The record is a 53-nucleotide sequence from Anabaena cylindrica, which matches "Cyanobacteria heterocyst sRNA" in Rfam.
The source organism's lineage runs through Bacteria, Bacillati, Cyanophyceae, Nostocales and Anabaena cylindrica.
[Rfam]
RNA sequence: GUACGUUGUUAAGCACAGCAAUUAUAGAGGUUUGGUAAUAAACCAAACCUUUU
Numbered sequence: 001g002u003a004c005g006u007u008g009u010u011a012a013g014c015a016c017a018g019c020a021a022u023u024a025u026a027g028a029g030g031u032u033u034g035g036u037a038a039u040a041a042a043c044c045a046a047a048c049c050u051u052u053u
Stems, first nucleotide, its partner, number of pairs: 005014002027051010